[Rfam]
RNA sequence: AAAGUAGGCGAGGUGAUCGCAAUCGAUGGUUGUUGCCUUCGGGCUGCAGUCAUCGGUUGAGGAAAGUCCGGGCUCCCCGAUGGCCAGGCUUGCUGGGUAACGCCCAGUGCGGGUGACCGUGAGGAGAGUGCCACAGAAACACACCGCCGAUGGCCGGUUCCGCCGGCACAGGCAAGGGUGCAAAGGUGCGGUAAGAGCGCACCAGCAGCAUCGAGAGGUGCUGGCUCGGUAAACCCCGGCUGGGAGCAAGGCCUAGGAACGACGGGUGGCCAUCUUCCCCGUUCCGUCUUUGUGCGCCGCUCGAGGUCGUCGGUAACGGCGAUCCCAGAUAGAUGAUCACCCCCCUUCCUUGGAAGGGUGAACAGAACCCGGCUUAUGUCCUGCUUUCAAC
Numbered sequence: 001a002a003a004g005u006a007g008g009c010g011a012g013g014u015g016a017u018c019g020c021a022a023u024c025g026a027u028g029g030u031u032g033u034u035g036c037c038u039u040c041g042g043g044c045u046g047c048a049g050u051c052a053u054c055g056g057u058u059g060a061g062g063a064a065a066g067u068c069c070g071g072g073c074u075c076c077c078c079g080a081u082g083g084c085c086a087g088g089c090u091u092g093c094u095g096g097g098u099a100a101c102g103c104c105c106a107g108u109g110c111g112g113g114u115g116a117c118c119g120u121g122a123g124g125a126g127a128g129u130g131c132c133a134c135a136g137a138a139a140c141a142c143a144c145c146g147c148c149g150a151u152g153g154c155c156g157g158u159u160c161c162g163c164c165g166g167c168a169c170a171g172g173c174a175a176g177g178g179u180g181c182a183a184a185g186g187u188g189c190g191g192u193a194a195g196a197g198c199g200c201a202c203c204a205g206c207a208g209c210a211u212c213g214a215g216a217g218g219u220g221c222u223g224g225c226u227c228g229g230u231a232a233a234c235c236c237c238g239g240c241u242g243g244g245a246g247c248a249a250g251g252c253c254u255a256g257g258a259a260c261g262a263c264g265g266g267u268g269g270c271c272a273u274c275u276u277c278c279c280c281g282u283u284c285c286g287u288c289u290u291u292g293u294g295c296g297c298c299g300c301u302c303g304a305g306g307u308c309g310u311c312g313g314u315a316a317c318g319g320c321g322a323u324c325c326c327a328g329a330u331a332g333a334u335g336a337u338c339a340c341c342c343c344c345c346u347u348c349c350u351u352g353g354a355a356g357g358g359u360g361a362a363c364a365g366a367a368c369c370c371g372g373c374u375u376a377u378g379u380c381c382u383g384c385u386u387u388c389a390a391c
Stems, first nucleotide, its partner, number of pairs: 001387008011377001012341007020059014064375003068372005073246004082278002087241003091238002093107005108122001109120004123236002128234002130230003144177002146173003151168002154165001185203006205225001206223007250298003261288005271281001305324008
Shown here is a 391-nucleotide RNA sequence from Synechococcus sp. CC9311, a member of the family "Bacterial RNase P class A". Rfam's curators put it in the seed alignment. The organism belongs to Synechococcus, within Bacteria.